[Rfam]
A member of the RNA family "Small nucleolar RNA SNORA61" from Echinops telfairi, 122 nucleotides long.
Lineage of the source: Eukaryota > Chordata > Teleostomi > Mammalia > Echinops.
ACA61 is a member of the H/ACA class of snoRNA that guide the sites of modification of uridines to pseudouridines.
The family's RNA type in Rfam is H/ACA-box small nucleolar RNA.
The family's consensus secondary structure was predicted with PFOLD.

RNA sequence: ACCCUCCAGUUCCCUUUCCCAUCGGAUCAUAAUACUGGUCUGGGUGGUCGUAAAAGGAGGAAAAGAAACACUGAAGCUGGCCCUCAGUGCUCUUGGAGCCCUUGGGCUAGUUUCAAACAGGG
Numbered sequence: 001a002c003c004c005u006c007c008a009g010u011u012c013c014c015u016u017u018c019c020c021a022u023c024g025g026a027u028c029a030u031a032a033u034a035c036u037g038g039u040c041u042g043g044g045u046g047g048u049c050g051u052a053a054a055a056g057g058a059g060g061a062a063a064a065g066a067a068a069c070a071c072u073g074a075a076g077c078u079g080g081c082c083c084u085c086a087g088u089g090c091u092c093u094u095g096g097a098g099c100c101c102u103u104g105g106g107c108u109a110g111u112u113u114c115a116a117a118c119a120g121g122g
Stems, first nucleotide, its partner, number of pairs: 003060005019047005025040004077110007087101001089099001